[Rfam]
RNA sequence: GUAAUUUUUCUUGCUCAAAUGAGUAUUCCAGCCACAGGAGUUAUAUCUGUGCAUAUAUAUAUAUAUAUAUAUAUAUGUAUCUAUAUAGGUAUAUAUAUAUACCAUAUACUAUAUAUGUAGAUUUUAAAUUGCUGCUGCUGCUGCUUUCUGAGAUGCUCAUUUGGGCAAGCAAUGUUAU
Numbered sequence: 001g002u003a004a005u006u007u008u009u010c011u012u013g014c015u016c017a018a019a020u021g022a023g024u025a026u027u028c029c030a031g032c033c034a035c036a037g038g039a040g041u042u043a044u045a046u047c048u049g050u051g052c053a054u055a056u057a058u059a060u061a062u063a064u065a066u067a068u069a070u071a072u073a074u075a076u077g078u079a080u081c082u083a084u085a086u087a088g089g090u091a092u093a094u095a096u097a098u099a100u101a102c103c104a105u106a107u108a109c110u111a112u113a114u115a116u117g118u119a120g121a122u123u124u125u126a127a128a129u130u131g132c133u134g135c136u137g138c139u140g141c142u143g144c145u146u147u148c149u150g151a152g153a154u155g156c157u158c159a160u161u162u163g164g165g166c167a168a169g170c171a172a173u174g175u176u177a178u
Base pairs, nucleotide, nucleotide: 004175005174007172008171010169011168012167013166014165015164016163017162018161019160020159021158022157023156024155025154026153027152029150030149
RNA: MIR828 microRNA precursor family
Organism: Trema andersonii